[Rfam]
RNA sequence: ACCUGCAUUCAAAAGUGAUCACGGGCUGCUUGUGCUCUGAUCAGUGAUAAUGCAGGGAGAGGAAUUGCUGAAAGCCAUUUCCCGUGUUUGGAGGGUCCAGCCUGUCCCUCUCAAAUGCUGGUGCUUUCACACA
Numbered sequence: 001a002c003c004u005g006c007a008u009u010c011a012a013a014a015g016u017g018a019u020c021a022c023g024g025g026c027u028g029c030u031u032g033u034g035c036u037c038u039g040a041u042c043a044g045u046g047a048u049a050a051u052g053c054a055g056g057g058a059g060a061g062g063a064a065u066u067g068c069u070g071a072a073a074g075c076c077a078u079u080u081c082c083c084g085u086g087u088u089u090g091g092a093g094g095g096u097c098c099a100g101c102c103u104g105u106c107c108c109u110c111u112c113a114a115a116u117g118c119u120g121g122u123g124c125u126u127u128c129a130c131a132c133a
Stems, first nucleotide, its partner, number of pairs: 002056008014045001016043006023037004067130001069129007086116005091110005
Annotation
This 133-nucleotide RNA from Sciurus carolinensis belongs to the Rfam family "Small nucleolar RNA SNORA71". The base pairs follow the family's consensus structure, which was predicted with PFOLD. The members of this family belong to the H/ACA class of snoRNAs which bind a number of proteins (including dyskerin, Gar1p and Nop10p) to form snoRNP complexes. This class of snoRNAs are thought to guide the sites of modification of uridines to pseudouridines by forming direct base pairing interactions with substrate RNAs. Gene Ontology terms of the family: RNA processing and nucleolus. Rfam 15.1 lists 1,805 matches to the family in 606 species. The source organism's lineage runs through Eukaryota, Amniota, Theria, Sciuridae and Sciurus.